[Rfam]
RNA sequence: UUCCCCACAGUUCUCCGAUUCCAAUUUUCCGCAAGGAAUGUCGCCGCUACCACCUCAUCGAGAUCUGGACCCCCACAGUACGUCGCAGCUUCGAUCCCGUAUCGGGUACCCUCAAGCUUGCCGCGCUCGGAUCUACUGUGGUCAGCUUCCUGUCCCCUGGGACAGGCCAGUCCCGUGAGCGUGAAUUGGUCUCGGAACUUAACCCUAAAUACACAU
Numbered sequence: 001u002u003c004c005c006c007a008c009a010g011u012u013c014u015c016c017g018a019u020u021c022c023a024a025u026u027u028u029c030c031g032c033a034a035g036g037a038a039u040g041u042c043g044c045c046g047c048u049a050c051c052a053c054c055u056c057a058u059c060g061a062g063a064u065c066u067g068g069a070c071c072c073c074c075a076c077a078g079u080a081c082g083u084c085g086c087a088g089c090u091u092c093g094a095u096c097c098c099g100u101a102u103c104g105g106g107u108a109c110c111c112u113c114a115a116g117c118u119u120g121c122c123g124c125g126c127u128c129g130g131a132u133c134u135a136c137u138g139u140g141g142u143c144a145g146c147u148u149c150c151u152g153u154c155c156c157c158u159g160g161g162a163c164a165g166g167c168c169a170g171u172c173c174c175g176u177g178a179g180c181g182u183g184a185a186u187u188g189g190u191c192u193c194g195g196a197a198c199u200u201a202a203c204c205c206u207a208a209a210u211a212c213a214c215a216u
Base pairs, nucleotide, nucleotide: 009199010198011197015195016194017193018192
Dot-bracket structure: ........(((...((((.............................................................................................................................................................................)))).))).................

This 216-nucleotide part of an RNA from Chaetomium globosum belongs to the Rfam family "Ascomycota telomerase RNA". Rfam links the family to the GO terms telomerase activity, telomerase catalytic core complex and telomere maintenance via telomerase. The source organism's lineage runs through Eukaryota, Sordariomycetidae, Sordariales, Chaetomiaceae and Chaetomium globosum. The family is grouped with related families in Rfam's "Telomerase clan". A reference for the family is Qi et al. (2013), "The common ancestral core of vertebrate and fungal telomerase RNAs", Nucleic Acids Res. The base pairs follow the family's consensus structure. A search with the family's covariance model found it, with a score of 1233 bits.